[Rfam]
SAM riboswitch aptamer (S box leader): a 96-nucleotide sequence from Mariniplasma anaerobium. Its family is annotated with regulation of gene expression in the Gene Ontology. Pairs were carried over by alignment from the consensus structure, which is taken from published work.

RNA sequence: AUCUUAUUCAGAGCUAUCGAGGCUAGUGACCGACGACGUAGCAGCAACCUAUUUGAUUAGGUGCUUAUCAUGAGGGGUUCAUCCCAACAAUAAGGA
Numbered sequence: 001a002u003c004u005u006a007u008u009c010a011g012a013g014c015u016a017u018c019g020a021g022g023c024u025a026g027u028g029a030c031c032g033a034c035g036a037c038g039u040a041g042c043a044g045c046a047a048c049c050u051a052u053u054u055g056a057u058u059a060g061g062u063g064c065u066u067a068u069c070a071u072g073a074g075g076g077g078u079u080c081a082u083c084c085c086a087a088c089a090a091u092a093a094g095g096a
Stems, first nucleotide, its partner, number of pairs: 002095007013042005021031002043065004048061002051057002074085004